[Rfam]
RNA: Lysine riboswitch aptamer
RNA sequence: AUGCGUGAUAGAGGCGCGGGCGAGCAUGAGUAGACGGCCGAGGGGGUACCCGAAGAAGCCGAUCGAAGGGGCCGUCCGCCGAAACGCCCUGCCGGACGCGGGAGGGCAGUUGGGGAUGCGGAGAAGAUCCGCAUCACUCCCGUCGCGACGAAGCGCUCGUUCGGCUU
Numbered sequence: 001a002u003g004c005g006u007g008a009u010a011g012a013g014g015c016g017c018g019g020g021c022g023a024g025c026a027u028g029a030g031u032a033g034a035c036g037g038c039c040g041a042g043g044g045g046g047u048a049c050c051c052g053a054a055g056a057a058g059c060c061g062a063u064c065g066a067a068g069g070g071g072c073c074g075u076c077c078g079c080c081g082a083a084a085c086g087c088c089c090u091g092c093c094g095g096a097c098g099c100g101g102g103a104g105g106g107c108a109g110u111u112g113g114g115g116a117u118g119c120g121g122a123g124a125a126g127a128u129c130c131g132c133a134u135c136a137c138u139c140c141c142g143u144c145g146c147g148a149c150g151a152a153g154c155g156c157u158c159g160u161u162c163g164g165c166u167u
Base pairs, nucleotide, nucleotide: 007161008160009159010157011156016079017078018077019076020075021074024072025071033064034063035061036060037059038058083111084110085109086107087106088105089104090103092101093100112138113137115135116134117133118132119131120130121129122128141150142149143148